[Rfam]
RNA sequence: ACGUAUUCUCAGCUUUGAGAACUGAAUUCCAUGGGUUGUAAUUGAAUCUGCUGUCAGACCCAUGGGGCUCAGUUCUUCAGCUUGGAUAUUUCUG
Numbered sequence: 001a002c003g004u005a006u007u008c009u010c011a012g013c014u015u016u017g018a019g020a021a022c023u024g025a026a027u028u029c030c031a032u033g034g035g036u037u038g039u040a041a042u043u044g045a046a047u048c049u050g051c052u053g054u055c056a057g058a059c060c061c062a063u064g065g066g067g068c069u070c071a072g073u074u075c076u077u078c079a080g081c082u083u084g085g086a087u088a089u090u091u092c093u094g
Stems, first nucleotide, its partner, number of pairs: 008085002011082003018076008033061004
RNA: mir-146 microRNA precursor family
Organism: Hemiprocne comata